[Rfam]
RNA sequence: GCAGGGAGGUGGUUGGGGCCAGAUCCCUGGAGGUGGUUGG
Numbered sequence: 001g002c003a004g005g006g007a008g009g010u011g012g013u014u015g016g017g018g019c020c021a022g023a024u025c026c027c028u029g030g031a032g033g034u035g036g037u038u039g040g
Base pairs, nucleotide, nucleotide: 002029003028004027005026006025
RNA: Prion pseudoknot
Organism: Psilopogon haemacephalus